[Rfam]
RNA sequence: UACAACUGAUAUGAUAUUGCUCAAAUGAGUGGGUAACGCCACGAAGGGGCACACGUAAACUGCCUAUGGCGUGAGUAGUUGUGUAAGGCGAAAGGGUCAUAAAGCUAGGCUGGAGAGCAAAAAGCCAACCCAAACAGGUAAAGCUGUGGAAAGGUUUGUAGAGGUACAGGCUGUUGGUGAUUAUGUAGUGGGCUGUAUA
Number, nucleotide and partner (000 for none) at each position: 001u000002a000003c000004a000005a000006c000007u000008g000009a000010u000011a000012u000013g000014a000015u000016a000017u000018u051019g050020c049021u048022c047023a000024a000025a000026u000027g000028a000029g000030u000031g000032g040033g039034u000035a000036a000037c000038g000039c033040c032041a000042c000043g000044a000045a000046g000047g022048g021049g020050c019051a018052c000053a000054c190055g189056u188057a000058a000059a000060c000061u000062g110063c109064c108065u107066a100067u099068g098069g097070c096071g000072u094073g000074a000075g000076u091077a000078g089079u088080u000081g000082u000083g000084u000085a000086a000087g000088g079089c078090g000091a076092a000093a000094g072095g000096g070097u069098c068099a067100u066101a000102a000103a000104g000105c000106u000107a065108g064109g063110c062111u000112g000113g000114a000115g000116a000117g186118c185119a184120a000121a000122a000123a000124g178125c177126c176127a175128a174129c173130c149131c148132a147133a000134a000135c000136a000137g145138g144139u000140a000141a000142a000143g000144c138145u137146g000147u132148g131149g130150a000151a000152a000153g172154g171155u170156u169157u168158g167159u166160a165161g000162a000163g000164g000165u160166a159167c158168a157169g156170g155171c154172u153173g129174u128175u127176g126177g125178u124179g000180a000181u000182u000183a000184u119185g118186u117187a000188g056189u055190g054191g000192g000193c000194u000195g000196u000197a000198u000199a000